This 139-nucleotide RNA from Salix purpurea belongs to the Rfam family "Small nucleolar RNA Z247". A reference for the family is Chen et al. (2003), "The high diversity of snoRNAs in plants: identification and comparative study of 120 snoRNA genes from Oryza sativa", Nucleic Acids Res. The family's RNA type in Rfam is C/D-box small nucleolar RNA. The match comes from Rfam's covariance-model search (49 bits).
[Rfam]
RNA sequence: CCACUAUGCCAUGAUGAUAUAAAAACAUAUAUUCUUGCAGGUCUUAACAAUGAAUAUGAUAGUUUUGUGGCCUCAAUUUCAACAUGAAUCGACAGCAUCACUCUUGAUGAGAUUUACUCUCUUCUGCGAACAUUUAAGG
Number, nucleotide and partner (000 for none) at each position: 001c000002c000003a000004c138005u137006a000007u000008g134009c000010c000011a000012u000013g000014a000015u000016g000017a000018u000019a000020u000021a000022a000023a000024a000025a000026c000027a000028u000029a000030u000031a000032u000033u000034c000035u000036u000037g000038c000039a000040g000041g000042u000043c000044u000045u000046a000047a000048c000049a000050a000051u000052g000053a000054a000055u000056a000057u000058g000059a000060u000061a000062g000063u000064u000065u000066u000067g000068u000069g000070g000071c000072c000073u000074c000075a000076a000077u000078u000079u000080c000081a000082a000083c000084a000085u000086g000087a000088a108089u107090c106091g105092a104093c000094a000095g000096c000097a000098u000099c000100a000101c000102u000103c000104u092105u091106g090107a089108u088109g000110a000111g000112a000113u000114u000115u000116a000117c000118u000119c000120u000121c000122u000123u000124c000125u000126g000127c000128g000129a000130a000131c000132a000133u000134u008135u000136a000137a005138g004139g000